[Rfam]
RNA sequence: GUGGGCUACGGGGACAUGGUGCCCAGGACGUACGUGGGCAUGCUGGUCGGUGCCCUCUGCGCCCUAGCAGGGGUGUUAACCAUCGCUCUCCCCGUGCCCGUUAUCGUGUCCAAU
Numbered sequence: 001g002u003g004g005g006c007u008a009c010g011g012g013g014a015c016a017u018g019g020u021g022c023c024c025a026g027g028a029c030g031u032a033c034g035u036g037g038g039c040a041u042g043c044u045g046g047u048c049g050g051u052g053c054c055c056u057c058u059g060c061g062c063c064c065u066a067g068c069a070g071g072g073g074u075g076u077u078a079a080c081c082a083u084c085g086c087u088c089u090c091c092c093c094g095u096g097c098c099c100g101u102u103a104u105c106g107u108g109u110c111c112a113a114u
Stems, first nucleotide, its partner, number of pairs: 001114002004111002007108005013102003018097001021095002037077004049063003
Rfam assigns this 114-nucleotide RNA sequence from Argiope bruennichi to the family "Potassium channel RNA editing signal". This family represents a group of sequences related to the human potassium channel Kv1.1 hairpin element which directs the efficient modification of an adenosine to inosine by an adenosine deaminase acting on RNA (ADAR). Taxonomically the source falls in Argiope (Eukaryota, Metazoa, Protostomia, Araneoidea). It is annotated as a cis-regulatory element.